RNA: chrB-b RNA
RNA sequence: CGGGGAUCGCAGGCUCCCCACCCUUCAUCCCGAAACGCCAGACGCGGGCGCGUCCAAGUUCUGC
Numbered sequence: 001c002g003g004g005g006a007u008c009g010c011a012g013g014c015u016c017c018c019c020a021c022c023c024u025u026c027a028u029c030c031c032g033a034a035a036c037g038c039c040a041g042a043c044g045c046g047g048g049c050g051c052g053u054c055c056a057a058g059u060u061c062u063g064c
Base pairs, nucleotide, nucleotide: 002019003018004017005016006015009064010063011062012061013060041054042053043052044051045050